[Rfam]
RNA sequence: UAAUAGAAGCGGCGGGGCCCGGGUUUCCUGGGUGAGAUGGUGAGAUAAGGUCCACUUGGUUAAGCCGGGGGAGGAUUACGGACAGCCGCAGUCCUAUGCCUUCCCCGGUUUUGCUAG
Numbered sequence: 001u002a003a004u005a006g007a008a009g010c011g012g013c014g015g016g017g018c019c020c021g022g023g024u025u026u027c028c029u030g031g032g033u034g035a036g037a038u039g040g041u042g043a044g045a046u047a048a049g050g051u052c053c054a055c056u057u058g059g060u061u062a063a064g065c066c067g068g069g070g071g072a073g074g075a076u077u078a079c080g081g082a083c084a085g086c087c088g089c090a091g092u093c094c095u096a097u098g099c100c101u102u103c104c105c106c107g108g109u110u111u112u113g114c115u116a117g
Base pairs, nucleotide, nucleotide: 009089010088011087012086013085017033018032019031020030021029022028040055041054042053056117057116058115059114060113062111065108066107067106068105069104070103071102072101073100074099080094081093082092083091
This 117-nucleotide RNA sequence from Parahaliea mediterranea belongs to the Rfam family "RT-12 RNA". The match comes from Rfam's covariance-model search (72 bits). The base pairs follow the family's consensus structure, which is taken from published work.